[Rfam]
RNA sequence: AUUAAUAACGGAGGUCGAGAACCCCAUAAAUUAAU
Numbered sequence: 001a002u003u004a005a006u007a008a009c010g011g012a013g014g015u016c017g018a019g020a021a022c023c024c025c026a027u028a029a030a031u032u033a034a035u
Stems, first nucleotide, its partner, number of pairs: 001035006011025001013023003
Rfam assigns this 35-nucleotide sequence to the family "S16-Flavobacteria ribosomal protein leader".